[Rfam]
RNA sequence: CCGGCCCUGCCGCCUCCGAAGCCCUGCGUACCUACGUGGGGUAUCAGUAGGGGGGGCGGGGCACA
Numbered sequence: 001c002c003g004g005c006c007c008u009g010c011c012g013c014c015u016c017c018g019a020a021g022c023c024c025u026g027c028g029u030a031c032c033u034a035c036g037u038g039g040g041g042u043a044u045c046a047g048u049a050g051g052g053g054g055g056g057c058g059g060g061g062c063a064c065a
Stems, first nucleotide, its partner, number of pairs: 004062008013053001015052003021042009
Rfam assigns this 65-nucleotide RNA sequence from Colidextribacter sp. OB.20 to the family "DUF3800-VIII RNA". Rfam's curators write: Bacteroidetes, Cyanobacteria, Firmicutes, Planctomycetes (1 example), Proteobacteria, Tenericutes (1 example). It scores 53 bits against the family's covariance model.